A member of the RNA family "FMN riboswitch aptamer (RFN element)" from Microbacterium sp. TNHR37B, 141 nucleotides long.
[Rfam]
RNA sequence: AUGUGCUCCGGGGUCGGUGAGAAUCCGAACCGGCGGUGACAGUCCGCGAGCCCCUCGCCACGGCGACGGGUUGACCUGGUGGAACUCCAGGACCGACGGUGAUGCGACGCGAGUCGCGAGUCCGGAUGGGAGGAAGCACAG
Numbered sequence: 001a002u003g004u005g006c007u008c009c010g011g012g013g014u015c016g017g018u019g020a021g022a023a024u025c026c027g028a029a030c031c032g033g034c035g036g037u038g039a040c041a042g043u044c045c046g047c048g049a050g051c052c053c054c055u056c057g058c059c060a061c062g063g064c065g066a067c068g069g070g071u072u073g074a075c076c077u078g079g080u081g082g083a084a085c086u087c088c089a090g091g092a093c094c095g096a097c098g099g100u101g102a103u104g105c106g107a108c109g110c111g112a113g114u115c116g117c118g119a120g121u122c123c124g125g126a127u128g129g130g131a132g133g134a135a136g137c138a139c140a141g
Stems, first nucleotide, its partner, number of pairs: 003139005008132001015027003031095002033047004042093002050071003075091005097124003
Taxonomically the source falls in Microbacterium (Bacteria, Bacillati, Micrococcales, Microbacteriaceae). The match comes from Rfam's covariance-model search (83 bits).